[Rfam]
RNA sequence: AAAGGUUUGCGGCCCUUCGGCGUCGCCCUGCGGUGGGAGGCGUCAAACCACCCUGAGCCGCGUUGGCUGAAGACCGUCGUGGUGAGCGUCCAGAGAAAGAGCGCAUGCUGUGCGCCACAUGG
Numbered sequence: 001a002a003a004g005g006u007u008u009g010c011g012g013c014c015c016u017u018c019g020g021c022g023u024c025g026c027c028c029u030g031c032g033g034u035g036g037g038a039g040g041c042g043u044c045a046a047a048c049c050a051c052c053c054u055g056a057g058c059c060g061c062g063u064u065g066g067c068u069g070a071a072g073a074c075c076g077u078c079g080u081g082g083u084g085a086g087c088g089u090c091c092a093g094a095g096a097a098a099g100a101g102c103g104c105a106u107g108c109u110g111u112g113c114g115c116c117a118c119a120u121g122g
Stems, first nucleotide, its partner, number of pairs: 002017004019044006026037003048122002052093001055090002057083002060080003064076003099118001101115004